RNA sequence: AGCCUGUGAUGACAAAAUGAACUCAUUUUUCUGACACCUACUAUGAGAGCUGAGCCACAGCUCCUGAUUCCAACUGGAUUCUGAGGCUA
Numbered sequence: 001a002g003c004c005u006g007u008g009a010u011g012a013c014a015a016a017a018u019g020a021a022c023u024c025a026u027u028u029u030u031c032u033g034a035c036a037c038c039u040a041c042u043a044u045g046a047g048a049g050c051u052g053a054g055c056c057a058c059a060g061c062u063c064c065u066g067a068u069u070c071c072a073a074c075u076g077g078a079u080u081c082u083g084a085g086g087c088u089a
Stems, first nucleotide, its partner, number of pairs: 001088004049061004
Dot-bracket structure: ((((............................................((((.....)))).......................)))).
A member of the RNA family "Small nucleolar RNA SNORD60" from Poecilia reticulata, 89 nucleotides long. Taxonomically the source falls in Poecilia (Eukaryota, Euacanthomorphacea, Percomorphaceae, Atherinomorphae). A search with the family's covariance model found it, with a score of 52 bits. By type it is a C/D-box small nucleolar RNA.